[Rfam]
Annotation: Shown here is a 141-nucleotide sequence from Setaria italica, a member of the family "MIR529 microRNA precursor family". Rfam 15.1 lists 55 matches to the family in 30 species. It scores 92 bits against the family's covariance model. Taxonomically the source falls in Setaria (Eukaryota, Embryophyta, Liliopsida, commelinids). For this family Rfam cites "A diverse set of microRNAs and microRNA-like small RNAs in developing rice grains" (Zhu et al., Genome Res, 2008).
RNA sequence: UCAUCAAGGCUAAAGGGAGAAGAGAGAGAGUACAGCCUUAACAUGCACGCACUUUAGAUUUCAUCAGUCUCUUGUGCGGUUAUGUGUGUGAGAGUGAUGAAGGCUGUACCCUCUCUCUUCUUCUCUUAGCGUUUUUGUUGC
Numbered sequence: 001u002c003a004u005c006a007a008g009g010c011u012a013a014a015g016g017g018a019g020a021a022g023a024g025a026g027a028g029a030g031u032a033c034a035g036c037c038u039u040a041a042c043a044u045g046c047a048c049g050c051a052c053u054u055u056a057g058a059u060u061u062c063a064u065c066a067g068u069c070u071c072u073u074g075u076g077c078g079g080u081u082a083u084g085u086g087u088g089u090g091a092g093a094g095u096g097a098u099g100a101a102g103g104c105u106g107u108a109c110c111c112u113c114u115c116u117c118u119u120c121u122u123c124u125c126u127u128a129g130c131g132u133u134u135u136u137g138u139u140g141c
Stems, first nucleotide, its partner, number of pairs: 005137002009130001012127002015124014030109009